The record is a 122-nucleotide RNA sequence from Aotus nancymaae, which matches "U4atac minor spliceosomal RNA" in Rfam.
RNA sequence: ACCAUCCUCUUCCUGGGAUUGCGCUACUGUCCAAUGAGUACACAGUGAGGGCAGUACUGCUAACGCCUAAACAACACACCUGUGUCAGCUAGAGCUUUGCUUUACGUUGGUGUAAUUAAAAA
Numbered sequence: 001a002c003c004a005u006c007c008u009c010u011u012c013c014u015g016g017g018a019u020u021g022c023g024c025u026a027c028u029g030u031c032c033a034a035u036g037a038g039u040a041c042a043c044a045g046u047g048a049g050g051g052c053a054g055u056a057c058u059g060c061u062a063a064c065g066c067c068u069a070a071a072c073a074a075c076a077c078a079c080c081u082g083u084g085u086c087a088g089c090u091a092g093a094g095c096u097u098u099g100c101u102u103u104a105c106g107u108u109g110g111u112g113u114a115a116u117u118a119a120a121a122a
Stems, first nucleotide, its partner, number of pairs: 007017003021060003026055007038046002082113006090104006
For this family Rfam cites "Evolutionary conservation of minor U12-type spliceosome between plants and humans" (Lorkovic et al., RNA, 2005). Rfam 15.1 lists 1,648 matches to the family in 818 species. It scores 74 bits against the family's covariance model. The organism belongs to Aotus, within Eukaryota. U4atac is an essential component of the minor U12-type spliceosome complex which is required for removal of the rarer class of eukaryotic introns (AT-AC, U12-type). Pairs were carried over by alignment from the consensus structure, which is taken from published work.